Rfam assigns this 424-nucleotide RNA sequence from Vibrio ishigakensis to the family "cspA thermoregulator". Gene Ontology terms of the family: regulation of translation and response to temperature stimulus.
RNA sequence: CCCACUCUGUGAUUCAGAGUUAUUAAUGAGUUAUCAAGUAAAAGUAAACCCCAGUAUUUCUGCGUUUCUGUCGUCAUCCUUUGUGUUUCUUAGCUUCAUCGUAACAUUCAAUAAUUCACAAUUGCAGCAUACGCGCAUUAGCGAACUAUAUAUUUUUUAAUAAGGUGACAUCAUGUCUAACAAAACUACUGGUACUGUAAAAUGGUUUAACGAAGAGAAAGGCUUCGGUUUCCUAACUCAAGACAACGGCGGCAAAGACGUAUUCGUUCACUUCCGUGCUAUCGCUUCUGACGGUUUCCGCACUCUUGCUGAAGGCCAAAAAGUAUCGUUCAUCGUAGAAGAAGGUCAAAAAGGUCUUCAAGCUGCUGAAGUAACUGUACUUUAAUCAGUUUUUGUAUGGGUGGCUCUAUGCCAUCCAUACUCU
Numbered sequence: 001c002c003c004a005c006u007c008u009g010u011g012a013u014u015c016a017g018a019g020u021u022a023u024u025a026a027u028g029a030g031u032u033a034u035c036a037a038g039u040a041a042a043a044g045u046a047a048a049c050c051c052c053a054g055u056a057u058u059u060c061u062g063c064g065u066u067u068c069u070g071u072c073g074u075c076a077u078c079c080u081u082u083g084u085g086u087u088u089c090u091u092a093g094c095u096u097c098a099u100c101g102u103a104a105c106a107u108u109c110a111a112u113a114a115u116u117c118a119c120a121a122u123u124g125c126a127g128c129a130u131a132c133g134c135g136c137a138u139u140a141g142c143g144a145a146c147u148a149u150a151u152a153u154u155u156u157u158u159a160a161u162a163a164g165g166u167g168a169c170a171u172c173a174u175g176u177c178u179a180a181c182a183a184a185a186c187u188a189c190u191g192g193u194a195c196u197g198u199a200a201a202a203u204g205g206u207u208u209a210a211c212g213a214a215g216a217g218a219a220a221g222g223c224u225u226c227g228g229u230u231u232c233c234u235a236a237c238u239c240a241a242g243a244c245a246a247c248g249g250c251g252g253c254a255a256a257g258a259c260g261u262a263u264u265c266g267u268u269c270a271c272u273u274c275c276g277u278g279c280u281a282u283c284g285c286u287u288c289u290g291a292c293g294g295u296u297u298c299c300g301c302a303c304u305c306u307u308g309c310u311g312a313a314g315g316c317c318a319a320a321a322a323g324u325a326u327c328g329u330u331c332a333u334c335g336u337a338g339a340a341g342a343a344g345g346u347c348a349a350a351a352a353g354g355u356c357u358u359c360a361a362g363c364u365g366c367u368g369a370a371g372u373a374a375c376u377g378u379a380c381u382u383u384a385a386u387c388a389g390u391u392u393u394u395g396u397a398u399g400g401g402u403g404g405c406u407c408u409a410u411g412c413c414a415u416c417c418a419u420a421c422u423c424u
Stems, first nucleotide, its partner, number of pairs: 004020006027240001029238004044231001047230004051222002057220002065216003069212003073208001076206003082175004087170001093166004098161002101119002104116001134143003177192003244338001246336004257265002270324004277318002279315002283308002290303001343358003347353001360382003363377001365375001367374001395421011
It scores 130 bits against the family's covariance model. The family's consensus secondary structure is taken from published work.